[Rfam]
RNA: Flavobacterium-1 RNA
RNA sequence: CCAAUCUAGGCGUCCAUAUUCUGCCUCUGGCGUUUCCCUGUACGUUAGCGAUAAGCGACGACGAUUGGACCAAGUUGCCGGCGUUCCUUGGCCAGGAUGGCAGCUUGGU
Numbered sequence: 001c002c003a004a005u006c007u008a009g010g011c012g013u014c015c016a017u018a019u020u021c022u023g024c025c026u027c028u029g030g031c032g033u034u035u036c037c038c039u040g041u042a043c044g045u046u047a048g049c050g051a052u053a054a055g056c057g058a059c060g061a062c063g064a065u066u067g068g069a070c071c072a073a074g075u076u077g078c079c080g081g082c083g084u085u086c087c088u089u090g091g092c093c094a095g096g097a098u099g100g101c102a103g104c105u106u107g108g109u
Stems, first nucleotide, its partner, number of pairs: 001068006007061001009059001010045004015040002022032004048056002070108011087096003